[Rfam]
A member of the RNA family "Bacterial RNase P class A" from Methylomonas denitrificans, 350 nucleotides long. From the family's description: Ribonuclease P (RNase P) is a ubiquitous endoribonuclease, found in archaea, bacteria and eukarya as well as chloroplasts and mitochondria. The organism belongs to Methylomonas, within Bacteria. It is annotated as a ribozyme.
RNA sequence: AGAGUUGGCCGAACAGCCGCCGUUUCGCGCAAGCGGGAGGGAGGAAAGUCCGGGCUCCAUAGGGCAGGGUGCCAGGUAAUGCCUGGGAGGCGCGAGCCUACGGAAAGUGCCGCAGAAAAUAUACCGCCUGGUUUUUCGAAACCCGGUAAGGGUGAAAUGGUGCGGUAAGAGCGCACCGCGCAACUGGCAACAGGUGUGGCAGGGUAAACCCCACCCGGAGCAAGAUCAAAUAGAGGAGCAUUGGCGUGGCCCGCGUUGCUCCUGGGUAGAUUGCUUGAGCGCUUGGGUGACCAAGCGCCUAGAUGAAUGGCUGUUCACGACAGAACCCGGCUUACAGGCCAACUCUUUCU
Numbered sequence: 001a002g003a004g005u006u007g008g009c010c011g012a013a014c015a016g017c018c019g020c021c022g023u024u025u026c027g028c029g030c031a032a033g034c035g036g037g038a039g040g041g042a043g044g045a046a047a048g049u050c051c052g053g054g055c056u057c058c059a060u061a062g063g064g065c066a067g068g069g070u071g072c073c074a075g076g077u078a079a080u081g082c083c084u085g086g087g088a089g090g091c092g093c094g095a096g097c098c099u100a101c102g103g104a105a106a107g108u109g110c111c112g113c114a115g116a117a118a119a120u121a122u123a124c125c126g127c128c129u130g131g132u133u134u135u136u137c138g139a140a141a142c143c144c145g146g147u148a149a150g151g152g153u154g155a156a157a158u159g160g161u162g163c164g165g166u167a168a169g170a171g172c173g174c175a176c177c178g179c180g181c182a183a184c185u186g187g188c189a190a191c192a193g194g195u196g197u198g199g200c201a202g203g204g205u206a207a208a209c210c211c212c213a214c215c216c217g218g219a220g221c222a223a224g225a226u227c228a229a230a231u232a233g234a235g236g237a238g239c240a241u242u243g244g245c246g247u248g249g250c251c252c253g254c255g256u257u258g259c260u261c262c263u264g265g266g267u268a269g270a271u272u273g274c275u276u277g278a279g280c281g282c283u284u285g286g287g288u289g290a291c292c293a294a295g296c297g298c299c300u301a302g303a304u305g306a307a308u309g310g311c312u313g314u315u316c317a318c319g320a321c322a323g324a325a326c327c328c329g330g331c332u333u334a335c336a337g338g339c340c341a342a343c344u345c346u347u348u349c350u
Stems, first nucleotide, its partner, number of pairs: 001346010011335001012315007020041002023038006046333003050330005055220004062252004067216005072086005087101001088099004102211002107209002109205003124151002126147003130143005159177006178200001179198004184193003224272004234263006243257005279298008